The record is a 98-nucleotide RNA from Pelistega indica, which matches "Bacterial small signal recognition particle RNA" in Rfam. The organism belongs to Pelistega, within Bacteria. It is annotated as a non-coding RNA gene. A search with the family's covariance model found it, with a score of 74 bits.
RNA sequence: GGUGGGCCCCUUCGCAUGGGUCGGCAGUGAAUCUGGUCAGGUCGGGAACGAAGCAGCCAUAGCUGUGCGGAUCUAGUGCCGGAGUAAGGCUCACUCCU
Numbered sequence: 001g002g003u004g005g006g007c008c009c010c011u012u013c014g015c016a017u018g019g020g021u022c023g024g025c026a027g028u029g030a031a032u033c034u035g036g037u038c039a040g041g042u043c044g045g046g047a048a049c050g051a052a053g054c055a056g057c058c059a060u061a062g063c064u065g066u067g068c069g070g071a072u073c074u075a076g077u078g079c080c081g082g083a084g085u086a087a088g089g090c091u092c093a094c095u096c097c098u
Stems, first nucleotide, its partner, number of pairs: 004092005010084005015076001017075006024066005034059004042051003